[Rfam]
RNA sequence: CAUCGGCGUCCCUAGGGUUCCGGCAUCGGCGAUCUCGUAUCUCCGCGUGCGUCUGGGCCGAGAGGGACAGCCCGGCGGCGGAGCCUCGCUCCACCACAUUCGCCGGGUCCACGGCGGGAUAAAAGCCCGGGAGGC
Numbered sequence: 001c002a003u004c005g006g007c008g009u010c011c012c013u014a015g016g017g018u019u020c021c022g023g024c025a026u027c028g029g030c031g032a033u034c035u036c037g038u039a040u041c042u043c044c045g046c047g048u049g050c051g052u053c054u055g056g057g058c059c060g061a062g063a064g065g066g067a068c069a070g071c072c073c074g075g076c077g078g079c080g081g082a083g084c085c086u087c088g089c090u091c092c093a094c095c096a097c098a099u100u101c102g103c104c105g106g107g108u109c110c111a112c113g114g115c116g117g118g119a120u121a122a123a124a125g126c127c128c129g130g131g132a133g134g135c
Stems, first nucleotide, its partner, number of pairs: 008068005015059002020056002022053001023050004070108008110130001112133001116128003

A member of the RNA family "Guanidine-I riboswitch aptamer" from Ancylobacter defluvii, 135 nucleotides long. Rfam's curators write: This family represents a conserved RNA structure found upstream of the ykkC and yxkD genes in Bacillus subtilis and related genes in other bacteria. The function of this family is unclear although it has been suggested that it may function to switch on efflux pumps and detoxification systems in response to harmful environmental molecules. A search with the family's covariance model found it, with a score of 74 bits. Rfam links the family to the GO term regulation of gene expression. The source organism's lineage runs through Bacteria, Pseudomonadati, Alphaproteobacteria, Xanthobacteraceae and Ancylobacter.